The family of this 138-nucleotide RNA from Hyphomicrobium sulfonivorans is "Alphaproteobacterial sRNA BjrC1505".
The family's RNA type in Rfam is small RNA.
For this family Rfam cites "Small RNAs of the Bradyrhizobium/Rhodopseudomonas lineage and their analysis" (Madhugiri et al., RNA Biol, 2012).
RNA sequence: AUUCACCCUUAAGGCUUUCUUAGGCUUACUCAGUCACCUUACGAUCACAUCCAGUCACCUGGAUCCGAGCGGCCCGGCCGCUCUUGUUUGACGCCUCCCUGUUGACUUCAGAGCCGCCUCACGGGCGGCUCUUUUUUU
Numbered sequence: 001a002u003u004c005a006c007c008c009u010u011a012a013g014g015c016u017u018u019c020u021u022a023g024g025c026u027u028a029c030u031c032a033g034u035c036a037c038c039u040u041a042c043g044a045u046c047a048c049a050u051c052c053a054g055u056c057a058c059c060u061g062g063a064u065c066c067g068a069g070c071g072g073c074c075c076g077g078c079c080g081c082u083c084u085u086g087u088u089u090g091a092c093g094c095c096u097c098c099c100u101g102u103u104g105a106c107u108u109c110a111g112a113g114c115c116g117c118c119u120c121a122c123g124g125g126c127g128g129c130u131c132u133u134u135u136u137u138u
Stems, first nucleotide, its partner, number of pairs: 003044002006013001021036001023034001050063004067083006090103004110132010
Dot-bracket structure: ..((.(......).......(.(..........).)......)).....((((......))))...((((((.....))))))......((((......))))......((((((((((...))))))))))......